[Rfam]
Nucleotides: 087
Base pairs, nucleotide, nucleotide: 012037013036017032018031019030020029021028022027040081041080042079043078045077046076048072049071050070055066056065057064058063
Number, partner (000 for none) and nucleotide at each position: 001000u002000a003000u004000u005000g006000a007000u008000a009000a010000u011000a012037g013036c014000a015000a016000a017032c018031u019030u020029a021028u022027u023000g024000a025000a026000a027022g028021a029020u030019g031018a032017g033000g034000a035000c036013g037012c038000a039000a040081a041080g042079c043078u044000a045077u046076g047000a048072g049071c050070c051000u052000a053000a054000u055066g056065g057064g058063a059000a060000g061000a062000u063058u064057u065056c066055c067000a068000a069000u070050g071049g072048u073000u074000g075000c076046u077045a078043g079042g080041u081040u082000g083000c084000c085000g086000u087000u